[Rfam]
Description: Rfam assigns this 100-nucleotide RNA sequence from Lysinibacillus sp. 2017 to the family "Purine riboswitch aptamer".
RNA sequence: CAGGUAAAACAUUUAAUCCCACAUAUAUGCUAGAGGAUAUGGCUCUAGUGUCUCUACCCAGAACCUUAAAUUCUGGACUAUGCGGGAAAGCAACUUUUGG
Numbered sequence: 001c002a003g004g005u006a007a008a009a010c011a012u013u014u015a016a017u018c019c020c021a022c023a024u025a026u027a028u029g030c031u032a033g034a035g036g037a038u039a040u041g042g043c044u045c046u047a048g049u050g051u052c053u054c055u056a057c058c059c060a061g062a063a064c065c066u067u068a069a070a071u072u073c074u075g076g077a078c079u080a081u082g083c084g085g086g087a088a089a090g091c092a093a094c095u096u097u098u099g100g
Base pairs, nucleotide, nucleotide: 018086019085020084022082023081024080025079029049030048031047032046033045034044035043058076059075060074061073062072063071
Gene Ontology term of the family: purine nucleobase biosynthetic process.